Description:
Rfam assigns this 102-nucleotide sequence from Vanilla planifolia to the family "MIR397 microRNA precursor family". Rfam links the family to the GO terms RISC complex and miRNA-mediated post-transcriptional gene silencing. Lineage of the source: Eukaryota > Viridiplantae > Embryophyta > Tracheophyta > Vanilla. Rfam 15.1 lists 496 matches to the family in 218 species. A search with the family's covariance model found it, with a score of 67 bits.
RNA sequence: GUUAAAGGCAUCUUUGAGUGCAGCGUUGAUGAAAUCCACCUCUCCAAAUGAAGCUUAUAGAGUUGUAGGAUAUCAUCAGCGCAGCACUCAAUAAUGUCUUUG
Numbered sequence: 001g002u003u004a005a006a007g008g009c010a011u012c013u014u015u016g017a018g019u020g021c022a023g024c025g026u027u028g029a030u031g032a033a034a035u036c037c038a039c040c041u042c043u044c045c046a047a048a049u050g051a052a053g054c055u056u057a058u059a060g061a062g063u064u065g066u067a068g069g070a071u072a073u074c075a076u077c078a079g080c081g082c083a084g085c086a087c088u089c090a091a092u093a094a095u096g097u098c099u100u101u102g
Stems, first nucleotide, its partner, number of pairs: 006099006014091008023082006030075003